Molybdenum/Tungsten riboswitch aptamer (Moco RNA motif): a 153-nucleotide sequence from Pseudidiomarina taiwanensis. A search with the family's covariance model found it, with a score of 67 bits.
RNA sequence: GGGUAACUAAAACUCCGAGCUCUAGUGCCUAAGGUGCUAACAACUAUGGUACUGGAGCCGCAGCUGAGAAGUUGCCCGGUAGUCAGAGAAAUCAACCUGCCGCCCACGAGCUGUAAUGCUCGAUAUUUGGAAAGGUGUUAGAUGAACUUACAA
Numbered sequence: 001g002g003g004u005a006a007c008u009a010a011a012a013c014u015c016c017g018a019g020c021u022c023u024a025g026u027g028c029c030u031a032a033g034g035u036g037c038u039a040a041c042a043a044c045u046a047u048g049g050u051a052c053u054g055g056a057g058c059c060g061c062a063g064c065u066g067a068g069a070a071g072u073u074g075c076c077c078g079g080u081a082g083u084c085a086g087a088g089a090a091a092u093c094a095a096c097c098u099g100c101c102g103c104c105c106a107c108g109a110g111c112u113g114u115a116a117u118g119c120u121c122g123a124u125a126u127u128u129g130g131a132a133a134g135g136u137g138u139u140a141g142a143u144g145a146a147c148u149u150a151c152a153a
Stems, first nucleotide, its partner, number of pairs: 003147002011139003015135002019058011033045003060075005077102006086093002103130002
The organism belongs to Pseudidiomarina, within Bacteria.